[Rfam]
RNA sequence: AGUGGAGGACGACCUCCUUACAUUGGUGGUUAGUGGAGGACGACCUCC
Numbered sequence: 001a002g003u004g005g006a007g008g009a010c011g012a013c014c015u016c017c018u019u020a021c022a023u024u025g026g027u028g029g030u031u032a033g034u035g036g037a038g039g040a041c042g043a044c045c046u047c048c
Stems, first nucleotide, its partner, number of pairs: 002019001004017005035048005

Rfam assigns this 48-nucleotide sequence from Aquarana catesbeiana to the family "Guanidine-II riboswitch aptamer (mini-ykkC)". The base pairs follow the family's consensus structure, which is taken from published work. On this family, see Weinberg et al., Nucleic Acids Res 2007: "Identification of 22 candidate structured RNAs in bacteria using the CMfinder comparative genomics pipeline". Simpler in structure and has fewer highly conserved nucleotide positions than the ykkC-yxkD leader. Despite this each of its two stem-loop structures directly bind free guanidine. Therefore, mini-ykkC RNA motif represents a distinct class of guanidine-sensing RNAs. Its crystal structure was also determined. The source organism's lineage runs through Eukaryota, Metazoa, Teleostomi, Amphibia and Aquarana.